Rfam assigns this 73-nucleotide sequence from Klebsiella michiganensis to the family "putative aminoglycoside riboswitch / attI site".
Conserved RNA structure found upstream of the bacterial aminoglycosides antibiotic-resistant genes: aminoglycoside acetyl transferase (AAC) and aminoglycoside adenyl transferase (AAD).
[Rfam]
RNA sequence: GGAGCAGCAACGAUGUUACGCAGCAGGGCAGUCGCCCUAAAACAAAGUUAACCCAGGAUGAGAACCUUGAAAG
Numbered sequence: 001g002g003a004g005c006a007g008c009a010a011c012g013a014u015g016u017u018a019c020g021c022a023g024c025a026g027g028g029c030a031g032u033c034g035c036c037c038u039a040a041a042a043c044a045a046a047g048u049u050a051a052c053c054c055a056g057g058a059u060g061a062g063a064a065c066c067u068u069g070a071a072a073g
Base pairs, nucleotide, nucleotide: 006017008015009014023053026037027036028035029034038050039049040048059071061067062066
A search with the family's covariance model found it, with a score of 64 bits. The family's RNA type in Rfam is cis-regulatory element. On this family, see Roth and Breaker, Cell 2013: "Integron attI1 sites, not riboswitches, associate with antibiotic resistance genes".